[Rfam]
This 103-nucleotide RNA sequence from Pan troglodytes belongs to the Rfam family "Y RNA".
The family's consensus secondary structure is taken from published work.
Y RNAs are components of the Ro ribonucleoprotein particle (Ro RNP), in association with Ro60 and La proteins. The Y RNAs and Ro60 and La proteins are well conserved, but the function of the Ro RNP is not known.

RNA sequence: AGAUGGUCCAAGUGCAGUGGUGUUUACAGCUAAUUUAUCACAACCAGUCACAGAUUUAUUUAUUCCUUCUCCACUCCCUACUGCUUCACUUGACUAGCCAAAC
Numbered sequence: 001a002g003a004u005g006g007u008c009c010a011a012g013u014g015c016a017g018u019g020g021u022g023u024u025u026a027c028a029g030c031u032a033a034u035u036u037a038u039c040a041c042a043a044c045c046a047g048u049c050a051c052a053g054a055u056u057u058a059u060u061u062a063u064u065c066c067u068u069c070u071c072c073a074c075u076c077c078c079u080a081c082u083g084c085u086u087c088a089c090u091u092g093a094c095u096a097g098c099c100a101a102a103c
Stems, first nucleotide, its partner, number of pairs: 002098001004096005010091002014087001016082005022077001028064002032060002